[Rfam]
RNA sequence: UCUAUCGUGAGAUGGAAUCUGAAGGUAGUCAGCGGCAAAACUCUGGUCUGAGGCACACGAACUACAUUUGAGACUUAUCCUUGUUGGUGAGUUUGCAUAACAAAACAAAGCCCAAUCACUACCCGAAACAAGGAGAGUAGAUGUAGCAGAUAGAUAUAUGGAGUGAAAGUUUGCGCU
Numbered sequence: 001u002c003u004a005u006c007g008u009g010a011g012a013u014g015g016a017a018u019c020u021g022a023a024g025g026u027a028g029u030c031a032g033c034g035g036c037a038a039a040a041c042u043c044u045g046g047u048c049u050g051a052g053g054c055a056c057a058c059g060a061a062c063u064a065c066a067u068u069u070g071a072g073a074c075u076u077a078u079c080c081u082u083g084u085u086g087g088u089g090a091g092u093u094u095g096c097a098u099a100a101c102a103a104a105a106c107a108a109a110g111c112c113c114a115a116u117c118a119c120u121a122c123c124c125g126a127a128a129c130a131a132g133g134a135g136a137g138u139a140g141a142u143g144u145a146g147c148a149g150a151u152a153g154a155u156a157u158a159u160g161g162a163g164u165g166a167a168a169g170u171u172u173g174c175g176c177u
Base pairs, nucleotide, nucleotide: 001016002015003014004013005012006011028177030175035170036169040164041163042162043161044160045159046151047150048149049148050147062146063145064144065143066142067141073138074137075136078134079133080132081131082130083129084128086112087111088110091106092105093104094103